[Rfam]
RNA sequence: CUCCCCGAAAUGCAUUGAGGUGCAGCCUCGACGUGGAGGUGUGACGGGGGUAGAGCUACUGGAUGGGUGAGGGGGCCGAUGGGUCUACCGAGCUCAACCAAACUCCGAAUACCGUUACACGCAGUUGGGAGUGAGACUACGGGUGAGAAGAUCCGUGGUCGAGAGGGAAAGAGCCCAGACAUCCGGCUAAGGUCCCGAAGCCUGCGCUAAGUGUUACAAGGAUGUGGGGGUGCUGAGACAGCCAGGAGGUUGGCUUAGAAGCAGCCAUCCUUGAAAGAGUGCGUAACAGCUCACUGGUCGAGCGCUCCUGCGCCGAAAAUGUGGGGGGCUAAGCGCGGCACCGAAGCCGAUGCAUGUGCGGUUAUGCCGCACAUGGGUAGGGGAGCGUUCCGUAUGGGGCGAAGUCAGGCUGUGAAGUCUGGUGGACCGUACGGAAGUGAGAAU
Numbered sequence: 001c002u003c004c005c006c007g008a009a010a011u012g013c014a015u016u017g018a019g020g021u022g023c024a025g026c027c028u029c030g031a032c033g034u035g036g037a038g039g040u041g042u043g044a045c046g047g048g049g050g051u052a053g054a055g056c057u058a059c060u061g062g063a064u065g066g067g068u069g070a071g072g073g074g075g076c077c078g079a080u081g082g083g084u085c086u087a088c089c090g091a092g093c094u095c096a097a098c099c100a101a102a103c104u105c106c107g108a109a110u111a112c113c114g115u116u117a118c119a120c121g122c123a124g125u126u127g128g129g130a131g132u133g134a135g136a137c138u139a140c141g142g143g144u145g146a147g148a149a150g151a152u153c154c155g156u157g158g159u160c161g162a163g164a165g166g167g168a169a170a171g172a173g174c175c176c177a178g179a180c181a182u183c184c185g186g187c188u189a190a191g192g193u194c195c196c197g198a199a200g201c202c203u204g205c206g207c208u209a210a211g212u213g214u215u216a217c218a219a220g221g222a223u224g225u226g227g228g229g230g231u232g233c234u235g236a237g238a239c240a241g242c243c244a245g246g247a248g249g250u251u252g253g254c255u256u257a258g259a260a261g262c263a264g265c266c267a268u269c270c271u272u273g274a275a276a277g278a279g280u281g282c283g284u285a286a287c288a289g290c291u292c293a294c295u296g297g298u299c300g301a302g303c304g305c306u307c308c309u310g311c312g313c314c315g316a317a318a319a320u321g322u323g324g325g326g327g328g329c330u331a332a333g334c335g336c337g338g339c340a341c342c343g344a345a346g347c348c349g350a351u352g353c354a355u356g357u358g359c360g361g362u363u364a365u366g367c368c369g370c371a372c373a374u375g376g377g378u379a380g381g382g383g384a385g386c387g388u389u390c391c392g393u394a395u396g397g398g399g400c401g402a403a404g405u406c407a408g409g410c411u412g413u414g415a416a417g418u419c420u421g422g423u424g425g426a427c428c429g430u431a432c433g434g435a436a437g438u439g440a441g442a443a444u
Stems, first nucleotide, its partner, number of pairs: 001385006011024005026131001027129006038122001039120009053106001054104002060100003064096004071089002073086005135160010165176003180352004185348003191342003200339001202338006220314002224311010241298005247271003252266003272276001277292001281290002353375008386439001388436010404423008
Dot-bracket structure: ((((((....(((((....))))).(((((((.....((((((((((.....(((....(((.((((...(((((((....))))).))...)))).)))..)).).....))))))))).).)))))).)...((((((((((......))))))))))....(((......)))...((((.(((...(((......(.((((((............((..((((((((((.......(((((.(((..(((.........)))..)))(...)(...((......)).).)))))...)))))))))).))..................))))))))))...)))))))((((((((.......))))))))....))))))(.((((((((((......((((((((....))))))))...))))))))))..).....

Shown here is a 444-nucleotide part of an RNA from Thermanaerovibrio acidaminovorans, a member of the family "Bacterial large subunit ribosomal RNA".
The family's consensus secondary structure is taken from published work.